Background:
HDV ribozyme from F. prausnitzii: a 70-nucleotide RNA sequence from Rodentolepis nana. The match comes from Rfam's covariance-model search (44 bits).
RNA sequence: GGUGUGCGAUAGACACACCUCCACAUGGUGCACCCUGGGCAACGUAUAUUCAUACGGCAAAAAGUCGAUA
Number, nucleotide and partner (000 for none) at each position: 001g036002g035003u000004g033005u032006g031007c030008g000009a000010u000011a000012g000013a000014c000015a000016c000017a029018c028019c027020u000021c000022c000023a000024c000025a000026u000027g019028g018029u017030g007031c006032a005033c004034c000035c002036u001037g000038g000039g000040c000041a000042a000043c056044g055045u054046a053047u052048a000049u000050u000051c000052a047053u046054a045055c044056g043057g000058c000059a000060a000061a000062a000063a000064g000065u000066c000067g000068a000069u000070a000

NCBI's taxonomy places the organism under Eukaryota, Opisthokonta, Lophotrochozoa, Cyclophyllidea, Rodentolepis. A reference for the family is Webb et al. (2009), "Widespread occurrence of self-cleaving ribozymes", Science. Pairs were carried over by alignment from the consensus structure, which is taken from published work. Its family is annotated with catalytic activity in the Gene Ontology.